[Rfam]
RNA sequence: UAGUACAUGAUGAAUUACUCGGAUUCCCCUUCAAGACGUCAUGGGUGAUGUAAAACCGAGUUUCUGAUACU
Numbered sequence: 001u002a003g004u005a006c007a008u009g010a011u012g013a014a015u016u017a018c019u020c021g022g023a024u025u026c027c028c029c030u031u032c033a034a035g036a037c038g039u040c041a042u043g044g045g046u047g048a049u050g051u052a053a054a055a056c057c058g059a060g061u062u063u064c065u066g067a068u069a070c071u
Base pairs, nucleotide, nucleotide: 002071003070004069005068